[Rfam]
RNA sequence: AACGACAAACGGCAAAAUCAUCGAAAGAUGAUGACGCAAAGCUAUAGGGGCUAAUUUGGACGAAGUCCAGAACGCUUGCCAGCUGCCGAA
Numbered sequence: 001a002a003c004g005a006c007a008a009a010c011g012g013c014a015a016a017a018u019c020a021u022c023g024a025a026a027g028a029u030g031a032u033g034a035c036g037c038a039a040a041g042c043u044a045u046a047g048g049g050g051c052u053a054a055u056u057u058g059g060a061c062g063a064a065g066u067c068c069a070g071a072a073c074g075c076u077u078g079c080c081a082g083c084u085g086c087c088g089a090a
Base pairs, nucleotide, nucleotide: 012037013036017032018031019030020029021028022027040084041083042082043081047080048079049076050075051074056070057069058068059067060066061065

This 90-nucleotide RNA sequence from Paenibacillus validus belongs to the Rfam family "c-di-GMP-I riboswitch aptamer". Taxonomically the source falls in Paenibacillus (Bacteria, Bacillati, Bacillota, Caryophanales). Rfam's curators write: GEMM was predicted in a large-scale screen for bacterial structured RNA regulatory elements.